Rfam assigns this 283-nucleotide RNA sequence from Botrytis cinerea to the family "Fungal signal recognition particle RNA".
The base pairs follow the family's consensus structure, which is taken from published work.
Rfam links the family to the GO terms SRP-dependent cotranslational protein targeting to membrane, signal sequence recognition, signal recognition particle, endoplasmic reticulum targeting and signal recognition particle, plasma membrane targeting.
The source organism's lineage runs through Eukaryota, Dikarya, Pezizomycotina, Botrytis and Botrytis cinerea.
A search with the family's covariance model found it, with a score of 147 bits.
By type it is a non-coding RNA gene.
The family is grouped with related families in Rfam's "SRP clan".
The literature on the family includes a 2002 paper in Nucleic Acids Res by Regalia et al., "Prediction of signal recognition particle RNA genes".

RNA sequence: UGACUGUAAUGGUCAUAAGGUUAAGGCGAGCUCACGUUCCCUCUUCUUUCUCUCCAAAUUCUUCAAUCUAACGAUUGAAGGCCACCAACAGUGCCCAGUUCGAACACUACGGUGAUAAUCCACUCGUGUAGGAAACUCACGAUGCUGCGGUUGUCCUAAGCAAUGAAGAUGAUUUCUUGAGGGAGGUUUCACUCUGCAGAGAGCUCUUCACCGUGGGGUGGCGGUGCAGGAUUACAUUCGUUGUGUGGUUUGGAGGGUGGAUGAGAUUUGGGUCUCAACUUUU
Numbered sequence: 001u002g003a004c005u006g007u008a009a010u011g012g013u014c015a016u017a018a019g020g021u022u023a024a025g026g027c028g029a030g031c032u033c034a035c036g037u038u039c040c041c042u043c044u045u046c047u048u049u050c051u052c053u054c055c056a057a058a059u060u061c062u063u064c065a066a067u068c069u070a071a072c073g074a075u076u077g078a079a080g081g082c083c084a085c086c087a088a089c090a091g092u093g094c095c096c097a098g099u100u101c102g103a104a105c106a107c108u109a110c111g112g113u114g115a116u117a118a119u120c121c122a123c124u125c126g127u128g129u130a131g132g133a134a135a136c137u138c139a140c141g142a143u144g145c146u147g148c149g150g151u152u153g154u155c156c157u158a159a160g161c162a163a164u165g166a167a168g169a170u171g172a173u174u175u176c177u178u179g180a181g182g183g184a185g186g187u188u189u190c191a192c193u194c195u196g197c198a199g200a201g202a203g204c205u206c207u208u209c210a211c212c213g214u215g216g217g218g219u220g221g222c223g224g225u226g227c228a229g230g231a232u233u234a235c236a237u238u239c240g241u242u243g244u245g246u247g248g249u250u251u252g253g254a255g256g257g258u259g260g261a262u263g264a265g266a267u268u269u270g271g272g273u274c275u276c277a278a279c280u281u282u283u
Stems, first nucleotide, its partner, number of pairs: 001015004018281005024275002037265003042261001050257009062079007083247003086243004091237003095230002098227002100224003104219002107216006114155001116153005121144001124142005130137002156160001164210006174203005183194003